A member of the RNA family "U12 minor spliceosomal RNA" from Camellia sinensis, 165 nucleotides long. Lineage of the source: Eukaryota > Streptophyta > Streptophytina > Spermatophyta > Camellia. Its family is annotated with mRNA branch site recognition, pre-mRNA branch point binding and U12 snRNP in the Gene Ontology. By type it is a spliceosomal small nuclear RNA. A reference for the family is Tarn and Steitz (1997), "Pre-mRNA splicing: the discovery of a new spliceosome doubles the challenge", Trends Biochem Sci.
RNA sequence: UUGCCUUAAACUAAUGAGUAAGGAAAACAAAGCGAGUUGUGAAAGCCGCUCACGCUCGCCGCGCAGAACACAAAAUUUGUGUGCAUGAAUUUAUGGAGGGGUUAUAAGCUGGCCGAGCGUUGACGCUGCUUACUUUUGCAGAACUCGCUUGAGCGGGCCUUCCAA
Numbered sequence: 001u002u003g004c005c006u007u008a009a010a011c012u013a014a015u016g017a018g019u020a021a022g023g024a025a026a027a028c029a030a031a032g033c034g035a036g037u038u039g040u041g042a043a044a045g046c047c048g049c050u051c052a053c054g055c056u057c058g059c060c061g062c063g064c065a066g067a068a069c070a071c072a073a074a075a076u077u078u079g080u081g082u083g084c085a086u087g088a089a090u091u092u093a094u095g096g097a098g099g100g101g102u103u104a105u106a107a108g109c110u111g112g113c114c115g116a117g118c119g120u121u122g123a124c125g126c127u128g129c130u131u132a133c134u135u136u137u138g139c140a141g142a143a144c145u146c147g148c149u150u151g152a153g154c155g156g157g158c159c160u161u162c163c164a165a
Stems, first nucleotide, its partner, number of pairs: 004023005032053001034051004039046001054084002057081002100163002106160001108158003112154001114151002117148003126141004